[Rfam]
Rfam assigns this 224-nucleotide RNA from Salibacterium salarium to the family "T-box leader". For this family Rfam cites "The GA motif: an RNA element common to bacterial antitermination systems, rRNA, and eukaryotic RNAs" (Winkler et al., RNA, 2001).
RNA sequence: CACAAGGCGUUGAAAGUUUGAAGUAGCUUUUUCUCCCUGUUUCAGAGAGCCGGUGGGAGCUGUGAACCGGUACACAGAAAAAAGUGAAUUACGUUCUCGAGCUUUCUUUCUGAGGCAGGAUUCUUUCCUGUUCACGGAAAGACGGGAGUUCCCGUUAUAGAAUACCGAGUGGAAAGCUUAUAGCUUUCAACAAGGGUGGUACCGCGAUAUUCAUCGUCCCUUCU
Numbered sequence: 001c002a003c004a005a006g007g008c009g010u011u012g013a014a015a016g017u018u019u020g021a022a023g024u025a026g027c028u029u030u031u032u033c034u035c036c037c038u039g040u041u042u043c044a045g046a047g048a049g050c051c052g053g054u055g056g057g058a059g060c061u062g063u064g065a066a067c068c069g070g071u072a073c074a075c076a077g078a079a080a081a082a083a084g085u086g087a088a089u090u091a092c093g094u095u096c097u098c099g100a101g102c103u104u105u106c107u108u109u110c111u112g113a114g115g116c117a118g119g120a121u122u123c124u125u126u127c128c129u130g131u132u133c134a135c136g137g138a139a140a141g142a143c144g145g146g147a148g149u150u151c152c153c154g155u156u157a158u159a160g161a162a163u164a165c166c167g168a169g170u171g172g173a174a175a176g177c178u179u180a181u182a183g184c185u186u187u188c189a190a191c192a193a194g195g196g197u198g199g200u201a202c203c204g205c206g207a208u209a210u211u212c213a214u215c216g217u218c219c220c221u222u223c224u
Stems, first nucleotide, its partner, number of pairs: 007102002015097002026085006038074003049071006105142007143154003172188007193221004204217005